This 93-nucleotide sequence from Desulforamulus aquiferis belongs to the Rfam family "Selenocysteine transfer RNA". Gene Ontology term of the family: triplet codon-amino acid adaptor activity. Clan: tRNA clan. The match comes from Rfam's covariance-model search (63 bits).
RNA sequence: GGGGGUGGAUGGUGCCUGGUGGUGCUCCUGGUCUUCAAAACCAGUCGUUGGGCAGUGUUCCUGUCAUGGUGAGUUCGAUUCUCACACACUCCC
Numbered sequence: 001g002g003g004g005g006u007g008g009a010u011g012g013u014g015c016c017u018g019g020u021g022g023u024g025c026u027c028c029u030g031g032u033c034u035u036c037a038a039a040a041c042c043a044g045u046c047g048u049u050g051g052g053c054a055g056u057g058u059u060c061c062u063g064u065c066a067u068g069g070u071g072a073g074u075u076c077g078a079u080u081c082u083c084a085c086a087c088a089c090u091c092c093c
Stems, first nucleotide, its partner, number of pairs: 001093007008085001011026006028044005049066003070084004